[Rfam]
RNA sequence: GUCCUCUUGUGUUUAAAUGGUGUUCAGUACCAAGGACAUGUGUGUUAACCUGUGUGUGGAUGGUGUUCAGUACCAAGGACAGGUGUGUUUACCU
Numbered sequence: 001g002u003c004c005u006c007u008u009g010u011g012u013u014u015a016a017a018u019g020g021u022g023u024u025c026a027g028u029a030c031c032a033a034g035g036a037c038a039u040g041u042g043u044g045u046u047a048a049c050c051u052g053u054g055u056g057u058g059g060a061u062g063g064u065g066u067u068c069a070g071u072a073c074c075a076a077g078g079a080c081a082g083g084u085g086u087g088u089u090u091a092c093c094u
Stems, first nucleotide, its partner, number of pairs: 004085001006083005018075007026067007034055001036053003040049002
mir-2060 microRNA precursor family: a 94-nucleotide sequence from Branchiostoma belcheri. NCBI's taxonomy places the organism under Eukaryota, Opisthokonta, Metazoa, Cephalochordata, Branchiostoma.